[Rfam]
RNA sequence: UUAAAAAUUAAAUUAUUACCGUAGACAGUAGGUGCUUAUGCUUAAUAUCCUGCCGAGGAUUAUCUUAUUUUUAUAAAAUGAGCCUUUGUAUGUCUAUGGAUAUAUAAAGGCUUUAAUUGUUUUAAA
Numbered sequence: 001u002u003a004a005a006a007a008u009u010a011a012a013u014u015a016u017u018a019c020c021g022u023a024g025a026c027a028g029u030a031g032g033u034g035c036u037u038a039u040g041c042u043u044a045a046u047a048u049c050c051u052g053c054c055g056a057g058g059a060u061u062a063u064c065u066u067a068u069u070u071u072u073a074u075a076a077a078a079u080g081a082g083c084c085u086u087u088g089u090a091u092g093u094c095u096a097u098g099g100a101u102a103u104a105u106a107a108a109g110g111c112u113u114u115a116a117u118u119g120u121u122u123u124a125a126a
Base pairs, nucleotide, nucleotide: 028053029052030051031050032049034041035040082111083110084109085108086107087106088105089104090103091102092101093100094099
The record is a 126-nucleotide RNA sequence from Acetoanaerobium sticklandii, which matches "Ribosomal protein L10 leader" in Rfam. The organism belongs to Acetoanaerobium sticklandii, within Bacteria. By type it is a cis-regulatory leader. This family is a putative r-protein leader autoregulatory structure found in B. subtilis and other low-GC Gram-positive bacteria. It is located in the 5' untranslated regions of mRNAs encoding ribosomal proteins L10 and L12 (rplJ-rplL). A Rho-independent transcription terminator structure that is probably involved in regulation is included at the 3' end.